[Rfam]
RNA sequence: GCACCUGCGCCUUCCCCGCUCCUCCCUGUGCAGGUCUGGGGGCGCUUGGUGCUGCAGCACAGCAGUGGAAAUCCAGAUGGGUUCUUCACUGGGUUGGGAUUCAUCUCUACACCUCUGCAACACCA
Dot-bracket structure: (((((.......((((((..((..........))..)))))).....))))).........((((.(.......((((((((......(((...))).))))))))......).)))).......
Numbered sequence: 001g002c003a004c005c006u007g008c009g010c011c012u013u014c015c016c017c018g019c020u021c022c023u024c025c026c027u028g029u030g031c032a033g034g035u036c037u038g039g040g041g042g043c044g045c046u047u048g049g050u051g052c053u054g055c056a057g058c059a060c061a062g063c064a065g066u067g068g069a070a071a072u073c074c075a076g077a078u079g080g081g082u083u084c085u086u087c088a089c090u091g092g093g094u095u096g097g098g099a100u101u102c103a104u105c106u107c108u109a110c111a112c113c114u115c116u117g118c119a120a121c122a123c124c125a
Stems, first nucleotide, its partner, number of pairs: 001052005013042006021034002062118004067113001075106008089097003